[Rfam]
Nucleotides: 038
Base pairs, nucleotide, nucleotide: 008025009024010023011022012021
Number, partner (000 for none) and nucleotide at each position: 001000c002000a003000g004000c005000a006000a007000g008025u009024u010023g011022g012021a013000g014000g015000c016000u017000g018000u019000g020000a021012u022011c023010c024009a025008g026000g027000g028000g029000c030000g031000g032000u033000a034000g035000c036000g037000u038000g